The record is a 241-nucleotide RNA from Paraburkholderia humisilvae, which matches "Group II catalytic intron D1-D4-6" in Rfam.
For this family Rfam cites "Group II introns: structure and catalytic versatility of large natural ribozymes" (Lehmann and Schmidt, Crit Rev Biochem Mol Biol, 2003).
Group II introns are found in rRNA, tRNA and mRNA of organelles in fungi, plants and protists, and also in mRNA in bacteria.
The source organism's lineage runs through Bacteria, Betaproteobacteria, Burkholderiales, Burkholderiaceae and Paraburkholderia.
The match comes from Rfam's covariance-model search (102 bits).
RNA sequence: AGAGUCAUACGUUGAAGGUCUAGCCAGCCACGACGGCCUCGAGUCAUGCGUGUGCGUCCGUAACGACGUAGGCGAAGCGUUGGCAGAGGUACGCCUGGGCCAGGUAUCGAGCUGCGAAAUCCAUUCCCCGCGCCGAAAGGCACGGACUGACCGGGGUGCCGAGGCACUGGACGCUUGCCGAAAGCCACACCGGGAUUGCCGUAUUGGCAAAGAGGCGACACGUAUCUGCGCACGCUGCUCA
Numbered sequence: 001a002g003a004g005u006c007a008u009a010c011g012u013u014g015a016a017g018g019u020c021u022a023g024c025c026a027g028c029c030a031c032g033a034c035g036g037c038c039u040c041g042a043g044u045c046a047u048g049c050g051u052g053u054g055c056g057u058c059c060g061u062a063a064c065g066a067c068g069u070a071g072g073c074g075a076a077g078c079g080u081u082g083g084c085a086g087a088g089g090u091a092c093g094c095c096u097g098g099g100c101c102a103g104g105u106a107u108c109g110a111g112c113u114g115c116g117a118a119a120u121c122c123a124u125u126c127c128c129c130g131c132g133c134c135g136a137a138a139g140g141c142a143c144g145g146a147c148u149g150a151c152c153g154g155g156g157u158g159c160c161g162a163g164g165c166a167c168u169g170g171a172c173g174c175u176u177g178c179c180g181a182a183a184g185c186c187a188c189a190c191c192g193g194g195a196u197u198g199c200c201g202u203a204u205u206g207g208c209a210a211a212g213a214g215g216c217g218a219c220a221c222g223u224a225u226c227u228g229c230g231c232a233c234g235c236u237g238c239u240c241a
Stems, first nucleotide, its partner, number of pairs: 010035005017029003021213001037089004043084004047079002049074003053070006109233001113232004152228004157224001158185002163179004191222002194219001196218005